[Rfam]
The family of this 209-nucleotide RNA sequence from Drosophila gunungcola is "U12 minor spliceosomal RNA".
By type it is a spliceosomal small nuclear RNA.
RNA sequence: GUGCCUCAAACUAAUGAGUAAGGAAAACCAAACUGGCCUUGCUAACCGCUUGGCAGUAUUUGGCUUCUAGGCAGAGGGGCGUUUUUCGUCCCUUGAAGCUCAAUUUUUGCAAGGGCACAGGUCGUCCCCUCCUUCUCCGAGUGGGUGGCGUCCGGCUGAGCGAACCGGCACCUACUUUUGUGUCCGGCAAGUGAGGCUGGAUGCCCUCC
Number, nucleotide and partner (000 for none) at each position: 001g000002u000003g000004c023005c022006u021007c000008a019009a000010a000011c000012u000013a000014a000015u000016g000017a000018g000019u008020a000021a006022g005023g004024a000025a000026a000027a000028c000029c000030a000031a000032a000033c000034u056035g000036g054037c053038c052039u000040u000041g049042c000043u000044a000045a000046c000047c000048g000049c041050u000051u000052g038053g037054c036055a000056g034057u000058a000059u096060u095061u000062g000063g000064c000065u000066u000067c000068u000069a000070g000071g000072c000073a000074g000075a000076g000077g000078g000079g000080c000081g000082u000083u000084u000085u000086u000087c000088g000089u000090c000091c000092c000093u000094u000095g060096a059097a000098g000099c000100u000101c000102a000103a000104u000105u000106u000107u000108u000109g000110c000111a000112a000113g000114g000115g000116c000117a000118c000119a000120g000121g000122u000123c000124g000125u000126c000127c000128c000129c000130u000131c000132c000133u000134u000135c000136u000137c000138c000139g000140a000141g209142u000143g207144g206145g205146u000147g000148g204149c203150g202151u201152c200153c199154g198155g000156c000157u193158g192159a000160g000161c000162g188163a000164a000165c000166c000167g184168g183169c182170a181171c180172c000173u000174a000175c000176u000177u000178u000179u000180g171181u170182g169183u168184c167185c000186g000187g000188c162189a000190a000191g000192u158193g157194a000195g000196g000197c000198u154199g153200g152201a151202u150203g149204c148205c145206c144207u143208c000209c141